[Rfam]
RNA sequence: GCUGUCCACGCCGUGAAACAGGCAGCCCCCGAAGCGGACCGGCAGCUACGCUGGCCGGGUGCGCCCUCUACCGGAGGACGCAAAGCCGACAGCCGUCGCAACCAGGGAGCACCUCCAUG
Numbered sequence: 001g002c003u004g005u006c007c008a009c010g011c012c013g014u015g016a017a018a019c020a021g022g023c024a025g026c027c028c029c030c031g032a033a034g035c036g037g038a039c040c041g042g043c044a045g046c047u048a049c050g051c052u053g054g055c056c057g058g059g060u061g062c063g064c065c066c067u068c069u070a071c072c073g074g075a076g077g078a079c080g081c082a083a084a085g086c087c088g089a090c091a092g093c094c095g096u097c098g099c100a101a102c103c104a105g106g107g108a109g110c111a112c113c114u115c116c117a118u119g
Base pairs, nucleotide, nucleotide: 060082061081062080063079065077066076067075068074085099086098088097089096090095
The record is a 119-nucleotide sequence from Streptomyces piniterrae, which matches "Streptomyces-metH RNA" in Rfam. Taxonomically the source falls in Streptomyces (Bacteria, Bacillati, Actinomycetes, Streptomycetaceae). Pairs were carried over by alignment from the consensus structure, which is taken from published work. Rfam classes the family as a small RNA.